[Rfam]
This 325-nucleotide RNA from Sordaria macrospora belongs to the Rfam family "Group I catalytic intron".
RNA sequence: CAAAAGGCGAAGUGAACCUUCGCCUAGUCUUAUAUAAGGCGAAACUCUCAAAUUGCGGGGAACUCUUAAGAACAAAUCUACCAAGUUAAUAUAGUAAUAUAAUUAAUGGAACAGGUAAUGACUCGUUGUAUGGUAAAAACGAUUUGUAUAUGUAGAAUAUCCGCAGCCAAGCACCAAGUAUUCGCUACCCCCUCCAGCUUCGCUGGAGGGGGGGAAGGAAUAACGGUGUGCAGUUCAUCGACUAAAUGUGAGUUGGGUUUUAUUAAUAUGAAAGGAUAUUAAUAAAUACCUUAAGAUAUAGUCAGGCUCAAUACAUGAGUAUUGG
Numbered sequence: 001c002a003a004a005a006g007g008c009g010a011a012g013u014g015a016a017c018c019u020u021c022g023c024c025u026a027g028u029c030u031u032a033u034a035u036a037a038g039g040c041g042a043a044a045c046u047c048u049c050a051a052a053u054u055g056c057g058g059g060g061a062a063c064u065c066u067u068a069a070g071a072a073c074a075a076a077u078c079u080a081c082c083a084a085g086u087u088a089a090u091a092u093a094g095u096a097a098u099a100u101a102a103u104u105a106a107u108g109g110a111a112c113a114g115g116u117a118a119u120g121a122c123u124c125g126u127u128g129u130a131u132g133g134u135a136a137a138a139a140c141g142a143u144u145u146g147u148a149u150a151u152g153u154a155g156a157a158u159a160u161c162c163g164c165a166g167c168c169a170a171g172c173a174c175c176a177a178g179u180a181u182u183c184g185c186u187a188c189c190c191c192c193u194c195c196a197g198c199u200u201c202g203c204u205g206g207a208g209g210g211g212g213g214g215a216a217g218g219a220a221u222a223a224c225g226g227u228g229u230g231c232a233g234u235u236c237a238u239c240g241a242c243u244a245a246a247u248g249u250g251a252g253u254u255g256g257g258u259u260u261u262a263u264u265a266a267u268a269u270g271a272a273a274g275g276a277u278a279u280u281a282a283u284a285a286a287u288a289c290c291u292u293a294a295g296a297u298a299u300a301g302u303c304a305g306g307c308u309c310a311a312u313a314c315a316u317g318a319g320u321a322u323u324g325g
Stems, first nucleotide, its partner, number of pairs: 003033001043254005049248002054165006064156003166234002171229004179222005238304001240303005256290003260286002264282001310323005

From the family's description: Group I catalytic introns are large self-splicing ribozymes.